The record is a 75-nucleotide RNA from Molossus molossus, which matches "mir-492 microRNA precursor family" in Rfam. Rfam links the family to the GO terms miRNA-mediated post-transcriptional gene silencing and RISC complex. The organism belongs to Molossus, within Eukaryota.

RNA sequence: ACCAUCAAGGAGAUGUGGGACAAGUUUCUUGGUGCCACCAUUGAGAACUCCAAGAUUGCUCUGCAGAUCGACAGU
Numbered sequence: 001a002c003c004a005u006c007a008a009g010g011a012g013a014u015g016u017g018g019g020a021c022a023a024g025u026u027u028c029u030u031g032g033u034g035c036c037a038c039c040a041u042u043g044a045g046a047a048c049u050c051c052a053a054g055a056u057u058g059c060u061c062u063g064c065a066g067a068u069c070g071a072c073a074g075u
Base pairs, nucleotide, nucleotide: 010069011068014065015064016063017062018061019060021058022057023056027055028054029053030052031051032050034048

The literature on the family includes a 2005 paper in Nat Genet by Bentwich et al., "Identification of hundreds of conserved and nonconserved human microRNAs".